Background: This 87-nucleotide RNA from Patagioenas fasciata belongs to the Rfam family "mir-191 microRNA precursor family".
[Rfam]
RNA sequence: GGCGCCGGCGCGGGCAACGGAAUCCCAAAAGCAGCUGUCCCUGCUGCACCCAGCUGCCCUGGGGUUUCGUUACCCGCGCUCCCGCCC
Numbered sequence: 001g002g003c004g005c006c007g008g009c010g011c012g013g014g015c016a017a018c019g020g021a022a023u024c025c026c027a028a029a030a031g032c033a034g035c036u037g038u039c040c041c042u043g044c045u046g047c048a049c050c051c052a053g054c055u056g057c058c059c060u061g062g063g064g065u066u067u068c069g070u071u072a073c074c075c076g077c078g079c080u081c082c083c084g085c086c087c
Stems, first nucleotide, its partner, number of pairs: 009078005017070009028060001031057007
The match comes from Rfam's covariance-model search (67 bits). Pairs were carried over by alignment from the consensus structure, which was predicted with RNAalifold. Taxonomically the source falls in Patagioenas fasciata (Eukaryota, Metazoa, Vertebrata, Saurischia). Rfam links the family to the GO terms RISC complex and miRNA-mediated post-transcriptional gene silencing.